[Rfam]
The family of this 76-nucleotide RNA sequence from Methylomonas sp. DH-1 is "c-di-GMP-I-GGC riboswitch aptamer".

RNA sequence: GACGGCAAAGCCACACCCGCCGCGAGACGGGGCCGGAAAGCCAUGGGGUCUGUUUCAGACAGCCCGGUUGCCGCUC
Dot-bracket structure: (.((......((...((((.(....).))))..[))..((((..((((((.......))).])))))))..))..)